[Rfam]
RNA sequence: UGGGGUUGCUGAAUUAGAGAUCGGCACCCUUUCAUUCUUUAUAUUUUUGGAGUUCAUCAUGUCUCUAAGCGUUGAAGCUAAAGCUAAAAUCGUUUCCGAGUUCGGUCGUGGUACU
Numbered sequence: 001u002g003g004g005g006u007u008g009c010u011g012a013a014u015u016a017g018a019g020a021u022c023g024g025c026a027c028c029c030u031u032u033c034a035u036u037c038u039u040u041a042u043a044u045u046u047u048u049g050g051a052g053u054u055c056a057u058c059a060u061g062u063c064u065c066u067a068a069g070c071g072u073u074g075a076a077g078c079u080a081a082a083g084c085u086a087a088a089a090u091c092g093u094u095u096c097c098g099a100g101u102u103c104g105g106u107c108g109u110g111g112u113a114c115u
Base pairs, nucleotide, nucleotide: 007026008025009024010023011022012021046069047068048067049066050065051064052063
RNA: Ribosomal S15 leader